[Rfam]
RNA sequence: GCUUCGCGUUCAAGGGGUAUUCCUCCUCCCUAUACCCCUGAACGUUCCCGGCGAAGGCAUCCUCCUCCCAGCCCUAGCCGGACAUUGCGUCGCCCGCCGGUACCUCCUCCCACCGGCGGGCGUUCGC
Number, nucleotide and partner (000 for none) at each position: 001g000002c000003u000004u000005c000006g000007c044008g043009u042010u000011c040012a039013a000014g038015g037016g036017g035018u034019a000020u000021u000022c000023c000024u000025c000026c000027u000028c000029c000030c000031u000032a000033u000034a018035c017036c016037c015038c014039u012040g011041a000042a009043c008044g007045u000046u000047c000048c000049c080050g079051g078052c077053g000054a075055a000056g073057g072058c071059a000060u000061c000062c000063u000064c000065c000066u000067c000068c000069c000070a000071g058072c057073c056074c000075u054076a000077g052078c051079c050080g049081g000082a000083c000084a000085u000086u000087g000088c000089g000090u000091c122092g121093c120094c119095c118096g117097c116098c115099g114100g113101u112102a000103c000104c000105u000106c000107c000108u000109c000110c000111c000112a101113c100114c099115g098116g097117c096118g095119g094120g093121c092122g091123u000124u000125c000126g000127c000

The record is a 127-nucleotide RNA sequence from Stappia sediminis, which matches "Alphaproteobacterial ar14" in Rfam.
The base pairs follow the family's consensus structure.
Lineage of the source: Bacteria > Pseudomonadati > Hyphomicrobiales > Stappiaceae > Stappia.
Its family is annotated with biological process involved in symbiotic interaction in the Gene Ontology.
Smr14C2 was renamed NfeR1 (Nodule Formation Efficiency RNA) highly expressed in salt stress and during the symbiotic interaction on legume roots.
By type it is a small RNA.